[Rfam]
RNA sequence: UUUUCAGACCUAACUAUCGCCUGCCUUUAAAUAGGUAGGAGGAAAGUCCGGGCUCCAUAGAGAAUAGUGCCGGGUAACACCCGGGAGCUAUUUAGUUCUCUAAAUAGCGACAGACAGUGCCACAGAGAUAUACCGCCUAGGAGUAAUUCUAGGUAAGGGUGAAAAGGUAGGGUAAGAGCCUACCGGGAAAACAGUAAUGUUUUUUGCUAGGUAAACCUCACUAGGAGCAAAGUCAAGCAGUAGUUCUGGAUUUCUCGUCCUAUAGGCUACGGGUAGACUGCUAGAACAUUAAAGUGAUUUAAUGUGUAGAUAGAUGAUAGUUUUUAACAGAACUCGGCUUACAGGUCUGAUUUUUUU
Numbered sequence: 001u002u003u004u005c006a007g008a009c010c011u012a013a014c015u016a017u018c019g020c021c022u023g024c025c026u027u028u029a030a031a032u033a034g035g036u037a038g039g040a041g042g043a044a045a046g047u048c049c050g051g052g053c054u055c056c057a058u059a060g061a062g063a064a065u066a067g068u069g070c071c072g073g074g075u076a077a078c079a080c081c082c083g084g085g086a087g088c089u090a091u092u093u094a095g096u097u098c099u100c101u102a103a104a105u106a107g108c109g110a111c112a113g114a115c116a117g118u119g120c121c122a123c124a125g126a127g128a129u130a131u132a133c134c135g136c137c138u139a140g141g142a143g144u145a146a147u148u149c150u151a152g153g154u155a156a157g158g159g160u161g162a163a164a165a166g167g168u169a170g171g172g173u174a175a176g177a178g179c180c181u182a183c184c185g186g187g188a189a190a191a192c193a194g195u196a197a198u199g200u201u202u203u204u205u206g207c208u209a210g211g212u213a214a215a216c217c218u219c220a221c222u223a224g225g226a227g228c229a230a231a232g233u234c235a236a237g238c239a240g241u242a243g244u245u246c247u248g249g250a251u252u253u254c255u256c257g258u259c260c261u262a263u264a265g266g267c268u269a270c271g272g273g274u275a276g277a278c279u280g281c282u283a284g285a286a287c288a289u290u291a292a293a294g295u296g297a298u299u300u301a302a303u304g305u306g307u308a309g310a311u312a313g314a315u316g317a318u319a320g321u322u323u324u325u326a327a328c329a330g331a332a333c334u335c336g337g338c339u340u341a342c343a344g345g346u347c348u349g350a351u352u353u354u355u356u357u
Stems, first nucleotide, its partner, number of pairs: 004350007012322007020039007044340003048337005053227004060256004065223005070084005085111001087108009112218002117216002119212003133158002135154008166184006185207001186205008231279004240270006248260004286305008
RNA: Bacterial RNase P class A
Organism: Thiospirochaeta perfilievii